This 89-nucleotide RNA sequence belongs to the Rfam family "RT-9 RNA".

RNA sequence: GAUCUAUGCAACCACGGUUUCAUAGACAUGGUUUGGAAAAUCCAAGAGAGCCCUAUUCUUUCAGCGAAGCUGUAAACAUAUCAACAAUG
Numbered sequence: 001g002a003u004c005u006a007u008g009c010a011a012c013c014a015c016g017g018u019u020u021c022a023u024a025g026a027c028a029u030g031g032u033u034u035g036g037a038a039a040a041u042c043c044a045a046g047a048g049a050g051c052c053c054u055a056u057u058c059u060u061u062c063a064g065c066g067a068a069g070c071u072g073u074a075a076a077c078a079u080a081u082c083a084a085c086a087a088u089g
Stems, first nucleotide, its partner, number of pairs: 003026006010019003062072004